Rfam assigns this 332-nucleotide RNA from Fusarium napiforme to the family "Nuclear RNase P".

RNA sequence: GCCCUCCCCAACGCUGCGUUUCCAUGCUACAAACAGAGAGACACGCUUCGCGCUGUCUCUCAAUAACUCUUCGCAUGUGGGAAAUUCGGAGUAAGCCUCACCCAUCACCGACAUCUGGCAUCUGCUGGAACCGUUGGUCUGCCGGUAACGGCCUGGCGUCAAUGUCACGUCUGCAAAAGAUAUCAGAAAUACUCAGAGCGCGUGCUUUUGUCACGCUGUCUCUAUGGGAACGUCUUUGCGAGGCUCGUUUUGGGAAAAACUGAAGUGCGAUACGCGGCGUCCUGUCCCCUUCGCGGGCUGGAUGACUCAAUUCCGAUCACUCUGGGGAGGGC
Numbered sequence: 001g002c003c004c005u006c007c008c009c010a011a012c013g014c015u016g017c018g019u020u021u022c023c024a025u026g027c028u029a030c031a032a033a034c035a036g037a038g039a040g041a042c043a044c045g046c047u048u049c050g051c052g053c054u055g056u057c058u059c060u061c062a063a064u065a066a067c068u069c070u071u072c073g074c075a076u077g078u079g080g081g082a083a084a085u086u087c088g089g090a091g092u093a094a095g096c097c098u099c100a101c102c103c104a105u106c107a108c109c110g111a112c113a114u115c116u117g118g119c120a121u122c123u124g125c126u127g128g129a130a131c132c133g134u135u136g137g138u139c140u141g142c143c144g145g146u147a148a149c150g151g152c153c154u155g156g157c158g159u160c161a162a163u164g165u166c167a168c169g170u171c172u173g174c175a176a177a178a179g180a181u182a183u184c185a186g187a188a189a190u191a192c193u194c195a196g197a198g199c200g201c202g203u204g205c206u207u208u209u210g211u212c213a214c215g216c217u218g219u220c221u222c223u224a225u226g227g228g229a230a231c232g233u234c235u236u237u238g239c240g241a242g243g244c245u246c247g248u249u250u251u252g253g254g255a256a257a258a259a260c261u262g263a264a265g266u267g268c269g270a271u272a273c274g275c276g277g278c279g280u281c282c283u284g285u286c287c288c289c290u291u292c293g294c295g296g297g298c299u300g301g302a303u304g305a306c307u308c309a310a311u312u313c314c315g316a317u318c319a320c321u322c323u324g325g326g327g328a329g330g331g332c
Base pairs, nucleotide, nucleotide: 001332002331003330004329008325009324010323013278014277015276016275017274018273019272023077024076025075026074036061037060038059039058040057041056042055043054087315088314089313090312091311096243097242098241099240141152142151143150144149155171156170157169158168159167176237177236178235179234180233181232195223196222197221279303280302281301282300284298285297286296287295

The family's RNA type in Rfam is ribozyme. Its Rfam clan is "RNaseP clan". Taxonomically the source falls in Fusarium fujikuroi species complex (Eukaryota, Fungi, leotiomyceta, Fusarium). The family has 116 seed sequences and 3,848 matches in Rfam 15.1. Ribonuclease P (RNase P) is a ubiquitous endoribonuclease, found in archaea, bacteria and eukarya as well as chloroplasts and mitochondria. Its best characterised activity is the generation of mature 5'-ends of tRNAs by cleaving the 5'-leader elements of precursor-tRNAs.